[Rfam]
RNA sequence: GGAUCGGGUGGUUGCCUGUGGGACGGCGACCAAGGAUUGAUCCGACCCACCGUUUUCUGAGAGGCGCCGCCCGUCCCAGGGGUGCGCGCC
Numbered sequence: 001g002g003a004u005c006g007g008g009u010g011g012u013u014g015c016c017u018g019u020g021g022g023a024c025g026g027c028g029a030c031c032a033a034g035g036a037u038u039g040a041u042c043c044g045a046c047c048c049a050c051c052g053u054u055u056u057c058u059g060a061g062a063g064g065c066g067c068c069g070c071c072c073g074u075c076c077c078a079g080g081g082g083u084g085c086g087c088g089c090c
Stems, first nucleotide, its partner, number of pairs: 001043005010031007063090005068084005
Rfam assigns this 90-nucleotide RNA from Palleronia sediminis to the family "Rhodo-rpoB RNA".
It scores 58 bits against the family's covariance model.
The source organism's lineage runs through Bacteria, Pseudomonadati, Alphaproteobacteria, Rhodobacterales and Palleronia.
Rfam classes the family as a cis-regulatory element.